The record is a 58-nucleotide sequence from Escherichia albertii, which matches "Enterobacterial sRNA STnc450" in Rfam.
[Rfam]
RNA sequence: CGCUAUACUAGCCACUGAAAAUGCCGGUUCACUCUCUUCAGACCGGCUUUCAAUGUGU
Numbered sequence: 001c002g003c004u005a006u007a008c009u010a011g012c013c014a015c016u017g018a019a020a021a022u023g024c025c026g027g028u029u030c031a032c033u034c035u036c037u038u039c040a041g042a043c044c045g046g047c048u049u050u051c052a053a054u055g056u057g058u
Stems, first nucleotide, its partner, number of pairs: 002012004016052004023047007
The family's consensus secondary structure was predicted with CMfinder. The source organism's lineage runs through Bacteria, Pseudomonadota, Gammaproteobacteria, Enterobacteriaceae and Escherichia albertii.